[Rfam]
RNA sequence: CUCGUCGCAGACGACUGGCGCGGGUGGGUCACCACCGGGGAGUUGAGCAGUCGGGGCAUCGCCCGCCUGGGUGCCCCGU
Numbered sequence: 001c002u003c004g005u006c007g008c009a010g011a012c013g014a015c016u017g018g019c020g021c022g023g024g025u026g027g028g029u030c031a032c033c034a035c036c037g038g039g040g041a042g043u044u045g046a047g048c049a050g051u052c053g054g055g056g057c058a059u060c061g062c063c064c065g066c067c068u069g070g071g072u073g074c075c076c077c078g079u
Stems, first nucleotide, its partner, number of pairs: 003050001006047001008045002011043002015039002017067004024035004056074005

The family of this 79-nucleotide RNA sequence from Phycicoccus sp. HDW14 is "ZMP/ZTP riboswitch aptamer (pfl RNA motif)".
The base pairs follow the family's consensus structure, which is taken from published work.